A member of the RNA family "Small nucleolar RNA SNORD94" from Maylandia zebra, 136 nucleotides long. Gene Ontology terms of the family: nucleolus and RNA processing. The match comes from Rfam's covariance-model search (64 bits). By type it is a C/D-box small nucleolar RNA. On this family, see Galardi et al., Mol Cell Biol 2002: "Purified box C/D snoRNPs are able to reproduce site-specific 2'-O-methylation of target RNA in vitro". Lineage of the source: Eukaryota > Bilateria > Euteleosteomorpha > Ovalentaria > Maylandia zebra complex.
RNA sequence: UGAGUGAUGAUGAAGUGCGCAGGGGUACGGACCUCAGCCAGUGAUGGGGGCUGAGUGCUGCUGCAGAGUCUGAUCAGAGGACGAGUGGUUCUCUGAUGGGCAGCGGCAGUGCGACACAGACGCCUAUCUGAACUCG
Number, nucleotide and partner (000 for none) at each position: 001u136002g135003a134004g133005u132006g000007a000008u000009g000010a000011u000012g000013a000014a000015g000016u000017g000018c000019g000020c000021a000022g000023g000024g000025g000026u000027a000028c000029g000030g000031a000032c000033c000034u000035c000036a000037g000038c000039c000040a000041g000042u000043g000044a000045u000046g000047g000048g000049g000050g000051c000052u000053g000054a000055g000056u000057g000058c000059u000060g000061c000062u000063g000064c000065a000066g000067a000068g000069u000070c000071u000072g000073a000074u000075c000076a000077g000078a000079g000080g000081a000082c000083g000084a000085g000086u000087g000088g000089u000090u000091c000092u000093c000094u000095g000096a000097u000098g000099g000100g000101c000102a000103g000104c000105g000106g000107c000108a000109g000110u000111g000112c000113g000114a000115c000116a000117c000118a000119g000120a000121c000122g000123c000124c000125u000126a000127u000128c000129u000130g000131a000132a005133c004134u003135c002136g001